DUF3800-XI RNA: a 49-nucleotide RNA sequence. The family's consensus secondary structure is taken from published work. Actinobacteria, Firmicutes, Proteobacteria, Spirochaetes (1 example).
RNA sequence: UGGGCUGGCCGUGAGGCCCUGGUCCACCCUUUAGGCGGGGACAUCCCCC
Numbered sequence: 001u002g003g004g005c006u007g008g009c010c011g012u013g014a015g016g017c018c019c020u021g022g023u024c025c026a027c028c029c030u031u032u033a034g035g036c037g038g039g040g041a042c043a044u045c046c047c048c049c
Stems, first nucleotide, its partner, number of pairs: 001026006007018004